Rfam assigns this 117-nucleotide RNA sequence from Ideonella aquatica to the family "ALIL pseudoknot". The family has 26 seed sequences and 2,146 matches in Rfam 15.1. A search with the family's covariance model found it, with a score of 111 bits.

RNA sequence: CGCGUUUUUCGCCCAGGCGGAGCUCGACCGCCGCAUCAAGUCCUGAAGGAAUUUGUCGACGAACACCGUGGGCAGUUUGGGGUCGAGUCGAUCUGCCGCGUGCUGCAGAUCGCCCCA
Numbered sequence: 001c002g003c004g005u006u007u008u009u010c011g012c013c014c015a016g017g018c019g020g021a022g023c024u025c026g027a028c029c030g031c032c033g034c035a036u037c038a039a040g041u042c043c044u045g046a047a048g049g050a051a052u053u054u055g056u057c058g059a060c061g062a063a064c065a066c067c068g069u070g071g072g073c074a075g076u077u078u079g080g081g082g083u084c085g086a087g088u089c090g091a092u093c094u095g096c097c098g099c100g101u102g103c104u105g106c107a108g109a110u111c112g113c114c115c116c117a
Stems, first nucleotide, its partner, number of pairs: 016032005078117005089112002092109005098103001
The family's RNA type in Rfam is cis-regulatory element.
The base pairs follow the family's consensus structure, which is taken from published work.